A member of the RNA family "TPP riboswitch aptamer (THI element)" from Rhodococcus sp. RD6.2, 96 nucleotides long. The source organism's lineage runs through Bacteria, Bacillati, Actinomycetes, Mycobacteriales and Rhodococcus. The family's consensus secondary structure is taken from published work.
[Rfam]
RNA sequence: UGUUCUGACACGGGGUGCUCCGCGAACGCGGGGCUGAGAUGAGACCCGAGAACCUGUCCAGGUAAUGCUGACGAAGGGAUGUCAUGGUUUUGCGCG
Numbered sequence: 001u002g003u004u005c006u007g008a009c010a011c012g013g014g015g016u017g018c019u020c021c022g023c024g025a026a027c028g029c030g031g032g033g034c035u036g037a038g039a040u041g042a043g044a045c046c047c048g049a050g051a052a053c054c055u056g057u058c059c060a061g062g063u064a065a066u067g068c069u070g071a072c073g074a075a076g077g078g079a080u081g082u083c084a085u086g087g088u089u090u091u092g093c094g095c096g
Base pairs, nucleotide, nucleotide: 006084007083008082009081010080011048012047013046014045016042017034018033019032020031021030053077054076055075059070060069061068